MIR390 microRNA precursor family: a 122-nucleotide sequence from Trifolium medium.
Rfam links the family to the GO terms miRNA-mediated post-transcriptional gene silencing and RISC complex.
The source organism's lineage runs through Eukaryota, Embryophyta, Euphyllophyta, Fabales and Trifolium.
For this family Rfam cites "Expression of Arabidopsis MIRNA genes" (Xie et al., Plant Physiol, 2005).
The family has 16 seed sequences and 649 matches in Rfam 15.1.
RNA sequence: UGAAAGAAUCUAUCAAGCUCAGGAGGGAUAACGCCAUAGAAAAUCUUUCUAUUUUUCUUCUUUGGUUCAAUUUGAUUGAUCUUCUUUGGCGCUAUCCAUCGUGAGUUUCAUGGCUUAUUCAU
Numbered sequence: 001u002g003a004a005a006g007a008a009u010c011u012a013u014c015a016a017g018c019u020c021a022g023g024a025g026g027g028a029u030a031a032c033g034c035c036a037u038a039g040a041a042a043a044u045c046u047u048u049c050u051a052u053u054u055u056u057c058u059u060c061u062u063u064g065g066u067u068c069a070a071u072u073u074g075a076u077u078g079a080u081c082u083u084c085u086u087u088g089g090c091g092c093u094a095u096c097c098a099u100c101g102u103g104a105g106u107u108u109c110a111u112g113g114c115u116u117a118u119u120c121a122u
Stems, first nucleotide, its partner, number of pairs: 010113001016107006023100002026097005032091004
Dot-bracket structure: .........(.....((((((.((.(((((.((((....................................................)))).))))).)).)))))).....).........